RNA sequence: ACUACGUACUUAUCUACUGUAUAGUAGGUGAAAUACAUGUAUUUCAGCUACUAUAUAGUAGGUAAGUAUGCGGUUG
Numbered sequence: 001a002c003u004a005c006g007u008a009c010u011u012a013u014c015u016a017c018u019g020u021a022u023a024g025u026a027g028g029u030g031a032a033a034u035a036c037a038u039g040u041a042u043u044u045c046a047g048c049u050a051c052u053a054u055a056u057a058g059u060a061g062g063u064a065a066g067u068a069u070g071c072g073g074u075u076g
Stems, first nucleotide, its partner, number of pairs: 001074003005070011017058011029046003033042003
RNA: mir-7563 microRNA precursor family